[Rfam]
RNA sequence: CGAAGUGGAUCAACGGCUAAAUUCUCAGGCGUCCUGCCUAAACGCCGUCGUCAUCACAUCCUGUGAA
Numbered sequence: 001c002g003a004a005g006u007g008g009a010u011c012a013a014c015g016g017c018u019a020a021a022u023u024c025u026c027a028g029g030c031g032u033c034c035u036g037c038c039u040a041a042a043c044g045c046c047g048u049c050g051u052c053a054u055c056a057c058a059u060c061c062u063g064u065g066a067a
Stems, first nucleotide, its partner, number of pairs: 011050001013048005027039004054066004
RNA: Bacillaceae-1 RNA
Organism: Bacillus subtilis